[Rfam]
RNA sequence: AGUGAUGGUAGAGGCGCGAAAACCAUUAGUAAGCUUUUGAAGAGAAUGAGCUCUAGUGAGAAAGACUGAAAGGGGAAUUCGCCGAAGUGGAAAGAAGCUCAUUAUCUUGAAGCUGGACCUGUAUUGAAUAAGUGCAGGGCUGUCACACAAUCUUCUCCCAAAGAUUGUGUGGAGAACUAUCUCACGA
Numbered sequence: 001a002g003u004g005a006u007g008g009u010a011g012a013g014g015c016g017c018g019a020a021a022a023c024c025a026u027u028a029g030u031a032a033g034c035u036u037u038u039g040a041a042g043a044g045a046a047u048g049a050g051c052u053c054u055a056g057u058g059a060g061a062a063a064g065a066c067u068g069a070a071a072g073g074g075g076a077a078u079u080c081g082c083c084g085a086a087g088u089g090g091a092a093a094g095a096a097g098c099u100c101a102u103u104a105u106c107u108u109g110a111a112g113c114u115g116g117a118c119c120u121g122u123a124u125u126g127a128a129u130a131a132g133u134g135c136a137g138g139g140c141u142g143u144c145a146c147a148c149a150a151u152c153u154u155c156u157c158c159c160a161a162a163g164a165u166u167g168u169g170u171g172g173a174g175a176a177c178u179a180u181c182u183c184a185c186g187a
Base pairs, nucleotide, nucleotide: 007181008180009179010178011177016082017081018080019079020078023075024074032067033066035064036063037062038061086114087113088112092108093107094106095105097103115141116140118138119137120136121135122134123133124132125131143172144171145170146169147168148167149166150165151164152163153162
Description: This 187-nucleotide RNA sequence from Bacillus taeanensis belongs to the Rfam family "Lysine riboswitch aptamer". Rfam links the family to the GO term lysine biosynthetic process. A search with the family's covariance model found it, with a score of 116 bits. NCBI's taxonomy places the organism under Bacteria, Bacillati, Caryophanales, Bacillaceae, Bacillus.